[Rfam]
RNA sequence: GCCGGUCCUCGGUAGUGGCUUCCGGUCGAAAGACCGGGCGCUUCGAUCGAUGACCGGC
Numbered sequence: 001g002c003c004g005g006u007c008c009u010c011g012g013u014a015g016u017g018g019c020u021u022c023c024g025g026u027c028g029a030a031a032g033a034c035c036g037g038g039c040g041c042u043u044c045g046a047u048c049g050a051u052g053a054c055c056g057g058c
Stems, first nucleotide, its partner, number of pairs: 001058007009050005017042003021038007

A member of the RNA family "Actino-pnp RNA" from Nonomuraea soli, 58 nucleotides long.
The family's consensus secondary structure is taken from published work.
The source organism's lineage runs through Bacteria, Bacillati, Actinomycetes, Streptosporangiales and Nonomuraea.